[Rfam]
RNA sequence: UCUGGUUGUCAAAAGUGCUGUUUGUGCAGGUAGCAUUCAUCCUCCUACUGCAAAACCAGCACUUCAGGUAAACAGGU
Dot-bracket structure: ....(((..(..((((((((.((.(((.(((((...........)))))))).)).))))))))...)..)))....
Numbered sequence: 001u002c003u004g005g006u007u008g009u010c011a012a013a014a015g016u017g018c019u020g021u022u023u024g025u026g027c028a029g030g031u032a033g034c035a036u037u038c039a040u041c042c043u044c045c046u047a048c049u050g051c052a053a054a055a056c057c058a059g060c061a062c063u064u065c066a067g068g069u070a071a072a073c074a075g076g077u
Stems, first nucleotide, its partner, number of pairs: 005073003010068001013064008022055002025052003029049005